Background:
The record is a 158-nucleotide sequence from Streptacidiphilus fuscans, which matches "c-di-AMP riboswitch aptamer (ydaO/yuaA leader)" in Rfam. From the family's description: This family represents a conserved RNA structure found upstream of the ydaO and yuaA genes in Bacillus subtilis and related genes in other bacteria. The ydaO/yuaA element is thought to act as a genetic 'off' switch for the ydaO and yuaA genes in its native state. It is believed that the element may be triggered during osmotic shock leading to activation of ydaO, a predicted amino acid transporter gene, and members of the yuaA-yubG operon which code for KtrA and KtrB K+ transporters. Gene Ontology terms of the family: regulation of gene expression and cyclic-di-AMP binding.
RNA sequence: CAGGGGAAGCCGUCGAGUCGGAGCCGGGGACCCACCUUCCUCGGGGUGAAUCGGCGCCCGGUCGGACCGGUGUGAACCCGGACCGAUGAAGCGUCGUAGGGCCUACUUCCUGGUCCGAACCCGUCAGCUCACCCGGUAGGCGGACGUAGGAAGAAGGA
Numbered sequence: 001c002a003g004g005g006g007a008a009g010c011c012g013u014c015g016a017g018u019c020g021g022a023g024c025c026g027g028g029g030a031c032c033c034a035c036c037u038u039c040c041u042c043g044g045g046g047u048g049a050a051u052c053g054g055c056g057c058c059c060g061g062u063c064g065g066a067c068c069g070g071u072g073u074g075a076a077c078c079c080g081g082a083c084c085g086a087u088g089a090a091g092c093g094u095c096g097u098a099g100g101g102c103c104u105a106c107u108u109c110c111u112g113g114u115c116c117g118a119a120c121c122c123g124u125c126a127g128c129u130c131a132c133c134c135g136g137u138a139g140g141c142g143g144a145c146g147u148a149g150g151a152a153g154a155a156g157g158a
Base pairs, nucleotide, nucleotide: 001020023137024136025135026134027133028132033043044122045121046120052096053095054094055093056092057091099116100115101114102113